Record summary
tRNA: a 72-nucleotide RNA sequence from Metamycoplasma salivarium.
[Rfam]
RNA sequence: UGCCCCAUAGCCAAGUGGAAAGGCAGUGGUUUUUGGUGCCAUCAUCCGUUAGUUCGAAUCUAACUGGGGCAG
Numbered sequence: 001u002g003c004c005c006c007a008u009a010g011c012c013a014a015g016u017g018g019a020a021a022g023g024c025a026g027u028g029g030u031u032u033u034u035g036g037u038g039c040c041a042u043c044a045u046c047c048g049u050u051a052g053u054u055c056g057a058a059u060c061u062a063a064c065u066g067g068g069g070c071a072g
Stems, first nucleotide, its partner, number of pairs: 001071007010024003026042005048064005
By type it is a transfer RNA. The base pairs follow the family's consensus structure, which is taken from published work. Rfam links the family to the GO term triplet codon-amino acid adaptor activity. Lineage of the source: Bacteria > Mycoplasmatota > Mycoplasmoidales > Metamycoplasmataceae > Metamycoplasma.